[Rfam]
RNA sequence: GCAAGAUAAAGGCAAACCCAGUCGAAAGAUGGGGACGCAAAGCCACGGGUCUAAAGCACAUGCUAUGACAGCCGGGUUGCCGUG
Number, nucleotide and partner (000 for none) at each position: 001g000002c000003a000004a000005g000006a000007u000008a000009a000010a000011g000012g038013c037014a000015a000016a000017c033018c032019c031020a030021g000022u029023c028024g000025a000026a000027a000028g023029a022030u020031g019032g018033g017034g000035a000036c000037g013038c012039a000040a000041a078042g077043c076044c075045a000046c074047g073048g072049g069050u068051c067052u000053a000054a000055a000056g063057c062058a000059c000060a000061u000062g057063c056064u000065a000066u000067g051068a050069c049070a000071g000072c048073c047074g046075g044076g043077u042078u041079g000080c000081c000082g000083u000084g000

The record is an 84-nucleotide RNA sequence from Pelotomaculum thermopropionicum, which matches "c-di-GMP-I riboswitch aptamer" in Rfam. Pairs were carried over by alignment from the consensus structure, which is taken from published work. The source organism's lineage runs through Bacteria, Bacillati, Eubacteriales, Desulfotomaculaceae and Pelotomaculum thermopropionicum. The match comes from Rfam's covariance-model search (81 bits).